RNA: Selenocysteine transfer RNA
RNA sequence: GGCCGGAUCAGGGAGCCGGUGCUUCCCACGGGCUGCAAACCCGUUGAGGAUGCCUAAAAAGCAUCCUGUUCGGUUCAACUCCGAAAUCCGGCC
Numbered sequence: 001g002g003c004c005g006g007a008u009c010a011g012g013g014a015g016c017c018g019g020u021g022c023u024u025c026c027c028a029c030g031g032g033c034u035g036c037a038a039a040c041c042c043g044u045u046g047a048g049g050a051u052g053c054c055u056a057a058a059a060a061g062c063a064u065c066c067u068g069u070u071c072g073g074u075u076c077a078a079c080u081c082c083g084a085a086a087u088c089c090g091g092c093c
Stems, first nucleotide, its partner, number of pairs: 001093008011026006028044005047067005070084004